[Rfam]
RNA: FMN riboswitch aptamer (RFN element)
RNA sequence: GCUUUCCUUCGGGGCAGGGUGAAAUUCCCAACCGGCGGUGAUCGGGAGAAGGGAACAAGUCGUUAUACGGCUUCGUUUCCCGCCUCCGUCAGUCCGUGACCCGGGCCGAAUCUCGCAAGAGAACGGAACGGUGGACCUGGUGCAAAUCCGGGACCGACAGUAUAGUCUGGAUGGGAGAAGGAGAAG
Number, nucleotide and partner (000 for none) at each position: 001g000002c000003u184004u183005u182006c181007c180008u179009u178010c177011g000012g000013g000014g000015c000016a000017g029018g028019g027020u000021g000022a000023a000024a000025u000026u000027c019028c018029c017030a000031a166032c165033c156034g155035g097036c096037g095038g094039u000040g000041a000042u000043c000044g000045g000046g000047a000048g000049a000050a000051g000052g000053g000054a000055a000056c000057a000058a000059g000060u000061c000062g000063u000064u000065a000066u000067a000068c000069g000070g000071c000072u000073u000074c000075g000076u000077u000078u000079c000080c000081c000082g000083c000084c000085u000086c000087c000088g000089u000090c000091a000092g000093u000094c038095c037096g036097u035098g000099a000100c000101c131102c130103g000104g000105g000106c000107c000108g000109a000110a000111u000112c000113u000114c000115g000116c000117a000118a000119g000120a000121g000122a000123a000124c000125g000126g000127a000128a000129c000130g102131g101132u000133g000134g000135a000136c152137c151138u150139g149140g148141u000142g000143c000144a000145a000146a000147u000148c140149c139150g138151g137152g136153a000154c000155c034156g033157a000158c169159a168160g167161u000162a000163u000164a000165g032166u031167c160168u159169g158170g000171a000172u000173g000174g000175g000176a000177g010178a009179a008180g007181g006182a005183g004184a003185a000186g000